[Rfam]
RNA sequence: GCAUGGGAUAGCCUUUCUAAAUGGUUUAUUGGGCAAUUCUAUUUUACCAAGACUAUCGCAACCAUGCAAAAAAGCAACGGCAAAUCCGCUUCUUUUUUGGAG
Number, nucleotide and partner (000 for none) at each position: 001g000002c000003a000004u060005g059006g000007g057008a056009u055010a054011g053012c000013c000014u000015u000016u052017c051018u050019a000020a000021a000022u049023g048024g047025u046026u000027u000028a000029u000030u041031g040032g039033g038034c000035a000036a000037u000038u033039c032040u031041a030042u000043u000044u000045u000046a025047c024048c023049a022050a018051g017052a016053c011054u010055a009056u008057c007058g000059c005060a004061a000062c000063c000064a000065u101066g000067c099068a098069a097070a096071a095072a094073a000074g092075c000076a090077a000078c088079g087080g086081c000082a000083a000084a000085u000086c080087c079088g078089c000090u076091u000092c074093u000094u072095u071096u070097u069098u068099g067100g000101a065102g000
RNA: Streptococcus sRNA SpF25
Organism: Streptococcus pneumoniae